[Rfam]
RNA sequence: UCAUUCUAUCCUGCUGGCCACAGCAAAAGUGUUCACAUCACAACCCCUGUCAGGUAAUACCUGGUAAUACCUACAAAUUCUGCU
Numbered sequence: 001u002c003a004u005u006c007u008a009u010c011c012u013g014c015u016g017g018c019c020a021c022a023g024c025a026a027a028a029g030u031g032u033u034c035a036c037a038u039c040a041c042a043a044c045c046c047c048u049g050u051c052a053g054g055u056a057a058u059a060c061c062u063g064g065u066a067a068u069a070c071c072u073a074c075a076a077a078u079u080c081u082g083c084u
Stems, first nucleotide, its partner, number of pairs: 013047001016045002022084004027079002029041003052072005
Notes: Rfam assigns this 84-nucleotide RNA from Alligator mississippiensis to the family "Mammalian CPEB3 ribozyme". Its family is annotated with RNA nuclease activity in the Gene Ontology. The family's consensus secondary structure is taken from published work. Rfam's curators write: The mammalian CPEB3 ribozyme is a self cleaving RNA located in the second intron of the CPEB3 gene which belongs to a family of genes regulating messenger RNA polyadenylation. The source organism's lineage runs through Eukaryota, Metazoa, Euteleostomi, Archosauria and Alligator.